[Rfam]
This 57-nucleotide RNA from Silene paradoxa belongs to the Rfam family "Plastid-rps18 3UTR RNA". The sequence is in the family's curated seed alignment. NCBI's taxonomy places the organism under Eukaryota, Embryophyta, Pentapetalae, Caryophyllaceae, Silene sect. Siphonomorpha. About the family: Plastid rps18 is a non-coding RNA (ncRNA) present in plastids. It was identified as a short stem-loop motif in the 3 prime untranslate region (3UTR) of rps18 gene. By type it is a cis-regulatory element.
RNA sequence: UGCAAGUACUUUACGAUUAAGAAACAACUGUCUCUUGGACAGAUCGUGUAUAAAUUU
Dot-bracket structure: .................(((((.((....)).)))))....................
Numbered sequence: 001u002g003c004a005a006g007u008a009c010u011u012u013a014c015g016a017u018u019a020a021g022a023a024a025c026a027a028c029u030g031u032c033u034c035u036u037g038g039a040c041a042g043a044u045c046g047u048g049u050a051u052a053a054a055u056u057u
Stems, first nucleotide, its partner, number of pairs: 018037005024031002
Source information:
Rfam 15.1 lists 1,462 matches to the family in 409 species.